Description:
This 46-nucleotide RNA from Desulfonema magnum belongs to the Rfam family "Acido-Lenti-1 RNA". A search with the family's covariance model found it, with a score of 39 bits. Rfam 15.1 lists 2,607 matches to the family in 171 species.

[Rfam]
RNA sequence: CCCGGCAAUGAAUUGCCGGGCUAUUUUCACCCGUCCCUACGGGAGU
Numbered sequence: 001c002c003c004g005g006c007a008a009u010g011a012a013u014u015g016c017c018g019g020g021c022u023a024u025u026u027u028c029a030c031c032c033g034u035c036c037c038u039a040c041g042g043g044a045g046u
Stems, first nucleotide, its partner, number of pairs: 001020008034044004
Dot-bracket structure: ((((((((....)))))))).............((((...))))..
Pairs were carried over by alignment from the consensus structure, which is taken from published work.